About this RNA: Shown here is a 126-nucleotide RNA from Striga asiatica, a member of the family "Small nucleolar RNA snoR77".

[Rfam]
RNA sequence: AGGCAACCCCCUUUUUUUCAUUCAAUGAUAUGGGUGGUGUUAAUUUGCUCAUACAGAAAUUAACUUUAGCUCUUCAGACUUGCUGAUUCUUUUUUCUGAAGUUGGUCUAGUAAGCUUAAGGACACU
Numbered sequence: 001a002g003g004c005a006a007c008c009c010c011c012u013u014u015u016u017u018u019c020a021u022u023c024a025a026u027g028a029u030a031u032g033g034g035u036g037g038u039g040u041u042a043a044u045u046u047g048c049u050c051a052u053a054c055a056g057a058a059a060u061u062a063a064c065u066u067u068a069g070c071u072c073u074u075c076a077g078a079c080u081u082g083c084u085g086a087u088u089c090u091u092u093u094u095u096c097u098g099a100a101g102u103u104g105g106u107c108u109a110g111u112a113a114g115c116u117u118a119a120g121g122a123c124a125c126u
Base pairs, nucleotide, nucleotide: 002041003040004039005038007037008036009034010033011032013030015028016027064120065119066118069115070114071113076108077107078106079105080104082102083101084100
It is annotated as an H/ACA-box small nucleolar RNA.
The source organism's lineage runs through Eukaryota, Streptophytina, Lamiales, Orobanchaceae and Striga.
Gene Ontology terms of the family: nucleolus and RNA processing.
The family's consensus secondary structure was predicted with WAR.
The family has 5 seed sequences and 649 matches in Rfam 15.1.
The match comes from Rfam's covariance-model search (97 bits).